[Rfam]
The record is a 95-nucleotide RNA sequence from Scenedesmus sp. NREL 46B-D3, which matches "Small nucleolar RNA snR60/Z15/Z230/Z193/J17" in Rfam. Its family is annotated with RNA processing and nucleolus in the Gene Ontology. A reference for the family is Lowe and Eddy (1999), "A computational screen for methylation guide snoRNAs in yeast", Science. Rfam 15.1 lists 3,592 matches to the family in 1,855 species. Pairs were carried over by alignment from the consensus structure. The organism belongs to Scenedesmus, within Eukaryota.
RNA sequence: UGGCAGGCGGUGAUGAUCCCCUUACAUGCAUAGUUCAUCUGAUAACAGCUGAAGAGAACUUCCAUCAAGUCUUUCGCUCCUAUCUGAGCCUUGCC
Numbered sequence: 001u002g003g004c005a006g007g008c009g010g011u012g013a014u015g016a017u018c019c020c021c022u023u024a025c026a027u028g029c030a031u032a033g034u035u036c037a038u039c040u041g042a043u044a045a046c047a048g049c050u051g052a053a054g055a056g057a058a059c060u061u062c063c064a065u066c067a068a069g070u071c072u073u074u075c076g077c078u079c080c081u082a083u084c085u086g087a088g089c090c091u092u093g094c095c
Stems, first nucleotide, its partner, number of pairs: 005091004